[Rfam]
RNA sequence: GUGCAUCAUGACCUUUGCUCUAGAUUGCUUACUGAUAAUGAAGCAACACAGUAACAGUCUACAGCAGGGGUGGCCAACCAGUC
Numbered sequence: 001g002u003g004c005a006u007c008a009u010g011a012c013c014u015u016u017g018c019u020c021u022a023g024a025u026u027g028c029u030u031a032c033u034g035a036u037a038a039u040g041a042a043g044c045a046a047c048a049c050a051g052u053a054a055c056a057g058u059c060u061a062c063a064g065c066a067g068g069g070g071u072g073g074c075c076a077a078c079c080a081g082u083c
Stems, first nucleotide, its partner, number of pairs: 012070002015067004023059005029054005
RNA: mir-132 microRNA precursor family